[Rfam]
RNA: Small nucleolar RNA SNORA74
Organism: Takifugu flavidus
RNA sequence: CCCAGCCCUAAGUCAGCUGUCCAGGUCAUGUGUCUGGCUCAGUGUUACAGUGCUGGUAGAGAAAUGCUCUGUAUCCGAGCUCGGCUGUGCAGACUCUGUCCUAGAGUGUGCUGCUGCUAAGCCGCUGCAGAGUUUAGCCCAGUGAGAGUGGCCUGUCCUGAGCCAACAGCAGGACAGGCCUAGUACAGGGCUGCACAAU
Numbered sequence: 001c002c003c004a005g006c007c008c009u010a011a012g013u014c015a016g017c018u019g020u021c022c023a024g025g026u027c028a029u030g031u032g033u034c035u036g037g038c039u040c041a042g043u044g045u046u047a048c049a050g051u052g053c054u055g056g057u058a059g060a061g062a063a064a065u066g067c068u069c070u071g072u073a074u075c076c077g078a079g080c081u082c083g084g085c086u087g088u089g090c091a092g093a094c095u096c097u098g099u100c101c102u103a104g105a106g107u108g109u110g111c112u113g114c115u116g117c118u119a120a121g122c123c124g125c126u127g128c129a130g131a132g133u134u135u136a137g138c139c140c141a142g143u144g145a146g147a148g149u150g151g152c153c154u155g156u157c158c159u160g161a162g163c164c165a166a167c168a169g170c171a172g173g174a175c176a177g178g179c180c181u182a183g184u185a186c187a188g189g190g191c192u193g194c195a196c197a198a199u
Base pairs, nucleotide, nucleotide: 002056003055004054005053006052008050009049012048013047016043017042018041019040022036023035024034025033026032066133067132068131069130070129071128072127073126077123081119082116083115084114085113087111089109090108091107094106095105096104097103135193136192137191138190139189140188150180151179152178154176155175156174157173158172159171160170